[Rfam]
RNA: 6S / SsrS RNA
Organism: Aurantimonas sp. 22II-16-19i
RNA sequence: GGCGGGCUGCGCGGUGCGACAGGGGUAACAUUUCCUCGGGGCCUUAGUCAUUCCCUAGGGAGCUGUCCCUGCCUCGGCCCGUGGGCUGGGGCACAUGGCGCCCACCUACUCUGUAGGUUCCCGGGUUCGACUUCUCCAUCGGCCGGGUGGCUCGCCU
Numbered sequence: 001g002g003c004g005g006g007c008u009g010c011g012c013g014g015u016g017c018g019a020c021a022g023g024g025g026u027a028a029c030a031u032u033u034c035c036u037c038g039g040g041g042c043c044u045u046a047g048u049c050a051u052u053c054c055c056u057a058g059g060g061a062g063c064u065g066u067c068c069c070u071g072c073c074u075c076g077g078c079c080c081g082u083g084g085g086c087u088g089g090g091g092c093a094c095a096u097g098g099c100g101c102c103c104a105c106c107u108a109c110u111c112u113g114u115a116g117g118u119u120c121c122c123g124g125g126u127u128c129g130a131c132u133u134c135u136c137c138a139u140c141g142g143c144c145g146g147g148u149g150g151c152u153c154g155c156c157u
Stems, first nucleotide, its partner, number of pairs: 002155009012145004017141003034125003038121006058103003062099005071092009